RNA sequence: UUAGAACGUCAUGCUGAGCUUGCCGAAGCAUCUCUACCGCUUCGUAUAAGCCAUUCAACGAAGCGGUAGAGAUGCUUCGGCAAGCUCAGCAUGACGUUCUGGUGGGUUGAUUAUUUUCCAAACGACUUCCCUGAUUGCUUCUCAACAAAAAACCCCGCCGGACAUAUCCGGCGGGGUUUU
Numbered sequence: 001u002u003a004g005a006a007c008g009u010c011a012u013g014c015u016g017a018g019c020u021u022g023c024c025g026a027a028g029c030a031u032c033u034c035u036a037c038c039g040c041u042u043c044g045u046a047u048a049a050g051c052c053a054u055u056c057a058a059c060g061a062a063g064c065g066g067u068a069g070a071g072a073u074g075c076u077u078c079g080g081c082a083a084g085c086u087c088a089g090c091a092u093g094a095c096g097u098u099c100u101g102g103u104g105g106g107u108u109g110a111u112u113a114u115u116u117u118c119c120a121a122a123c124g125a126c127u128u129c130c131c132u133g134a135u136u137g138c139u140u141c142u143c144a145a146c147a148a149a150a151a152a153c154c155c156c157g158c159c160g161g162a163c164a165u166a167u168c169c170g171g172c173g174g175g176g177u178u179u180u
Stems, first nucleotide, its partner, number of pairs: 001137001003135001007096007015088013029074005101132002104129002106126004111121002153176010
RNA: Aggregatibacter sRNA 41